RNA: tpke11
Organism: Citrobacter youngae
RNA sequence: UGCAGGGUAGUUAAUCGGCACGGGCGUAGAGGUUUCCUCUUCGCCCGUGCUUGUAUGUUAAGGGGCUUAAAAAAAC
Number, nucleotide and partner (000 for none) at each position: 001u000002g000003c017004a000005g015006g000007g000008u000009a000010g000011u000012u000013a000014a000015u005016c000017g003018g050019c049020a048021c047022g046023g045024g044025c043026g042027u000028a040029g039030a038031g037032g000033u000034u000035u000036c000037c031038u030039c029040u028041u000042c026043g025044c024045c023046c022047g021048u020049g019050c018051u000052u000053g000054u000055a000056u000057g000058u000059u000060a000061a000062g000063g000064g000065g000066c000067u000068u000069a000070a000071a000072a000073a000074a000075a000076c000